Background
The family of this 52-nucleotide RNA sequence from Solanum commersonii is "MIR1886 microRNA precursor family". Taxonomically the source falls in Solanum (Eukaryota, Euphyllophyta, Mesangiospermae, eudicotyledons).

RNA sequence: UGAGAUGAAAUCGUCGUUUGGACAUACAAUUUUACGUUGAUUUCAUUUCAUG
Numbered sequence: 001u002g003a004g005a006u007g008a009a010a011u012c013g014u015c016g017u018u019u020g021g022a023c024a025u026a027c028a029a030u031u032u033u034a035c036g037u038u039g040a041u042u043u044c045a046u047u048u049c050a051u052g
Stems, first nucleotide, its partner, number of pairs: 001050013015036003018029003
A search with the family's covariance model found it, with a score of 67 bits.